[Rfam]
RNA sequence: AAAAGUAUUGGGAAUGAAGUUCUCCCAUAGUAUUCUUUUAUGCUAAAACCGCUGAAUUUAGGCUGAUGACUUCUGUGAUUAU
Numbered sequence: 001a002a003a004a005g006u007a008u009u010g011g012g013a014a015u016g017a018a019g020u021u022c023u024c025c026c027a028u029a030g031u032a033u034u035c036u037u038u039u040a041u042g043c044u045a046a047a048a049c050c051g052c053u054g055a056a057u058u059u060a061g062g063c064u065g066a067u068g069a070c071u072u073c074u075g076u077g078a079u080u081a082u
Stems, first nucleotide, its partner, number of pairs: 010026004016073006051063003
Rfam assigns this 82-nucleotide sequence from Clostridium cadaveris to the family "Fluoride riboswitch aptamer (crcB RNA motif)". The source organism's lineage runs through Bacteria, Bacillati, Clostridia, Eubacteriales and Clostridium.